[Rfam]
RNA: FMN riboswitch aptamer (RFN element)
RNA sequence: ACUUAUCUUCAGGGAUAGGUGAAAUUCCUUACCGGCGGUAGACAGCAUGGUAUUUGCUGUGAGCCCGCGAGCCUUUUUGGCAGAUCCGGUCAAAGUCCGGAGCCGACAGUGAAAUGUAUUAAUAUGUUUUGUUAUUAAUACAUUGAGUCUGGAUGGGAGAAGAUAAAG
Numbered sequence: 001a002c003u004u005a006u007c008u009u010c011a012g013g014g015a016u017a018g019g020u021g022a023a024a025u026u027c028c029u030u031a032c033c034g035g036c037g038g039u040a041g042a043c044a045g046c047a048u049g050g051u052a053u054u055u056g057c058u059g060u061g062a063g064c065c066c067g068c069g070a071g072c073c074u075u076u077u078u079g080g081c082a083g084a085u086c087c088g089g090u091c092a093a094a095g096u097c098c099g100g101a102g103c104c105g106a107c108a109g110u111g112a113a114a115u116g117u118a119u120u121a122a123u124a125u126g127u128u129u130u131g132u133u134a135u136u137a138a139u140a141c142a143u144u145g146a147g148u149c150u151g152g153a154u155g156g157g158a159g160a161a162g163a164u165a166a167a168g
Stems, first nucleotide, its partner, number of pairs: 003166008017029003033105002035068004063103002071081003085101005107151003